[Rfam]
RNA: THF (Tetrahydrofolate) riboswitch aptamer
Organism: Schnuerera ultunensis
RNA sequence: GGCAGAGUAGGUAGUUUGCGUAAAGUGUUAGAGGAUGGGACGUUGCCUCUAAACGAAGAGCUUUUUAGCUUGCGUUAAACUAUCGCGUUCGCUGAC
Numbered sequence: 001g002g003c004a005g006a007g008u009a010g011g012u013a014g015u016u017u018g019c020g021u022a023a024a025g026u027g028u029u030a031g032a033g034g035a036u037g038g039g040a041c042g043u044u045g046c047c048u049c050u051a052a053a054c055g056a057a058g059a060g061c062u063u064u065u066u067a068g069c070u071u072g073c074g075u076u077a078a079a080c081u082a083u084c085g086c087g088u089u090c091g092c093u094g095a096c
Base pairs, nucleotide, nucleotide: 001096003094004093005092010084011083012082013081014080015079016078017077018076019074020073021072025054026053028052029051030050031049032048033047034046038090039089040088041087042086058071059070060069061068